The family of this 86-nucleotide RNA sequence from Brachypodium distachyon is "mir-395 microRNA precursor family". Pairs were carried over by alignment from the consensus structure, which was predicted with PFOLD. Its family is annotated with miRNA-mediated post-transcriptional gene silencing and RISC complex in the Gene Ontology. For this family Rfam cites "Computational Identification of Plant MicroRNAs and Their Targets, Including a Stress-Induced miRNA" (Jones-Rhoades and Bartel, Mol Cell, 2004). Rfam describes the family as follows. mir-395 was identified in both Arabidopsis thaliana and Oryza sativa computationally and was later experimentally verified. mir-395 is thought to target mRNAs coding for ATP sulphurylases. The mature sequence is excised from the 3' arm of the hairpin.

RNA sequence: GUAUUAUCAUGAAUUCCCUACAAGCACUUCACAAGAAGCUAUUCCUAGGGCUAUUGUGAAGUGUUUGGGGGAACUCUUGAUGUCAC
Numbered sequence: 001g002u003a004u005u006a007u008c009a010u011g012a013a014u015u016c017c018c019u020a021c022a023a024g025c026a027c028u029u030c031a032c033a034a035g036a037a038g039c040u041a042u043u044c045c046u047a048g049g050g051c052u053a054u055u056g057u058g059a060a061g062u063g064u065u066u067g068g069g070g071g072a073a074c075u076c077u078u079g080a081u082g083u084c085a086c
Stems, first nucleotide, its partner, number of pairs: 005082005011076002014073006022066013036052001